bZIP non canonical Hac1/Xbp1 intron: a 65-nucleotide RNA from Brugia malayi. bZIP intron RNA is a non-canonical intron that was first reported in HAC1 gene in yeast and XBP1 gene in Metazoa. The family's consensus secondary structure was predicted with RNAfold. For this family Rfam cites "Conserved RNA structures in the non-canonical Hac1/Xbp1 intron" (Hooks and Griffiths-Jones, RNA Biol, 2011). Taxonomically the source falls in Brugia (Eukaryota, Protostomia, Ecdysozoa, Nematoda). The family has 112 seed sequences and 1,325 matches in Rfam 15.1.
[Rfam]
RNA sequence: CAUCAUCGUCCCUUGGAUCUGCCGAAUCCAUUCGCGGUCCCCAGCAGAGGGAACAGGCGGUGAUG
Numbered sequence: 001c002a003u004c005a006u007c008g009u010c011c012c013u014u015g016g017a018u019c020u021g022c023c024g025a026a027u028c029c030a031u032u033c034g035c036g037g038u039c040c041c042c043a044g045c046a047g048a049g050g051g052a053a054c055a056g057g058c059g060g061u062g063a064u065g
Stems, first nucleotide, its partner, number of pairs: 001065004006060005014030005038052004